[Rfam]
RNA sequence: AGCACCUGUGUUUGUUUACUUUCAUUAGUGGGCAAAAACUAUUAGGCGCAAGAAAUAAAUCCUCUUUUGAAACCUAGGGUUCAUUGUUGAGUAUGAGUUUUGAUUCAUAUAAGAAGAAACAUG
Numbered sequence: 001a002g003c004a005c006c007u008g009u010g011u012u013u014g015u016u017u018a019c020u021u022u023c024a025u026u027a028g029u030g031g032g033c034a035a036a037a038a039c040u041a042u043u044a045g046g047c048g049c050a051a052g053a054a055a056u057a058a059a060u061c062c063u064c065u066u067u068u069g070a071a072a073c074c075u076a077g078g079g080u081u082c083a084u085u086g087u088u089g090a091g092u093a094u095g096a097g098u099u100u101u102g103a104u105u106c107a108u109a110u111a112a113g114a115a116g117a118a119a120c121a122u123g
Stems, first nucleotide, its partner, number of pairs: 002049002005046004014039001015036003019032001025030001060119001063116001065114005075102010
RNA: Small nucleolar RNA SNORA40
Organism: Erinaceus europaeus